[Rfam]
RNA: Guanidine-II riboswitch aptamer (mini-ykkC)
Organism: Marinobacter sp. R17
RNA sequence: CGUGAGGGACGACCCUGACGGCCGGAUUAUUCAGGCGGGACGACCCGC
Numbered sequence: 001c002g003u004g005a006g007g008g009a010c011g012a013c014c015c016u017g018a019c020g021g022c023c024g025g026a027u028u029a030u031u032c033a034g035g036c037g038g039g040a041c042g043a044c045c046c047g048c
Stems, first nucleotide, its partner, number of pairs: 001020003005016004035048005